RNA sequence: UCAGUUCCGGUUCACCCCACGGCGUCGCGAAGACGCUGUGCCCCGUCGGGGCAGGGGACCCGGCACC
Numbered sequence: 001u002c003a004g005u006u007c008c009g010g011u012u013c014a015c016c017c018c019a020c021g022g023c024g025u026c027g028c029g030a031a032g033a034c035g036c037u038g039u040g041c042c043c044c045g046u047c048g049g050g051g052c053a054g055g056g057g058a059c060c061c062g063g064c065a066c067c
Stems, first nucleotide, its partner, number of pairs: 004066002007063004015057004022052002
Dot-bracket structure: ...((.((((....((((...((...........................)).))))..)))).)).

This 67-nucleotide sequence from Nocardioides baekrokdamisoli belongs to the Rfam family "L31-Actinobacteria ribosomal protein leader".
The family's consensus secondary structure is taken from published work.
The source organism's lineage runs through Bacteria, Actinomycetes, Propionibacteriales, Nocardioidaceae and Nocardioides.
The family's RNA type in Rfam is cis-regulatory leader.
A search with the family's covariance model found it, with a score of 35 bits.